The record is an 81-nucleotide sequence from Crocodylus porosus, which matches "Mammalian CPEB3 ribozyme" in Rfam.
It scores 43 bits against the family's covariance model.
Taxonomically the source falls in Crocodylus (Eukaryota, Craniata, Vertebrata, Sauria).
Rfam's curators write: The mammalian CPEB3 ribozyme is a self cleaving RNA located in the second intron of the CPEB3 gene which belongs to a family of genes regulating messenger RNA polyadenylation.
The base pairs follow the family's consensus structure, which is taken from published work.
On this family, see Teixeira et al., Nature 2004: "Autocatalytic RNA cleavage in the human beta-globin pre-mRNA promotes transcription termination".
RNA sequence: AGAGGCUAAGAGUUUGAGGCCAUAGCAGAAAUGCUUAUGGUUGUAGCCAUGUUAGAUUCCAGUGAAUCUGUGAAUUCUGCU
Numbered sequence: 001a002g003a004g005g006c007u008a009a010g011a012g013u014u015u016g017a018g019g020c021c022a023u024a025g026c027a028g029a030a031a032u033g034c035u036u037a038u039g040g041u042u043g044u045a046g047c048c049a050u051g052u053u054a055g056a057u058u059c060c061a062g063u064g065a066a067u068c069u070g071u072g073a074a075u076u077c078u079g080c081u
Base pairs, nucleotide, nucleotide: 013049018048019047020046024081025080026079027078028077029076030075031044032043033042053070054069055068056067057066058065059064